Background
This 126-nucleotide sequence from Muribacter muris belongs to the Rfam family "FMN riboswitch aptamer (RFN element)". Its family is annotated with FMN binding in the Gene Ontology. Taxonomically the source falls in Muribacter (Bacteria, Gammaproteobacteria, Pasteurellales, Pasteurellaceae). From the family's description: The RFN element is a highly conserved domain that is found frequently in the 5'-untranslated regions of prokaryotic mRNAs that encode for flavin mononucleotide (FMN) biosynthesis and transport proteins.
RNA sequence: UUUAAUCUUCAGGGCAGGGUGAAAUUCCCGACCGGCAGUGAUAGUCUGCGAGCUUUGGCACAACCGAAGCAGGAUUUGGUGAAAUUCCAAAACCGACAGUAAAAGUCUGGAUGGGAGAAGAGUAAG
Numbered sequence: 001u002u003u004a005a006u007c008u009u010c011a012g013g014g015c016a017g018g019g020u021g022a023a024a025u026u027c028c029c030g031a032c033c034g035g036c037a038g039u040g041a042u043a044g045u046c047u048g049c050g051a052g053c054u055u056u057g058g059c060a061c062a063a064c065c066g067a068a069g070c071a072g073g074a075u076u077u078g079g080u081g082a083a084a085u086u087c088c089a090a091a092a093c094c095g096a097c098a099g100u101a102a103a104a105g106u107c108u109g110g111a112u113g114g115g116a117g118a119a120g121a122g123u124a125a126g
Base pairs, nucleotide, nucleotide: 003124004123006121007120008119009118010117017029018028019027031106032105033095034094035049036048037047038046044093045092054069075091076090077089078088079087097109098108099107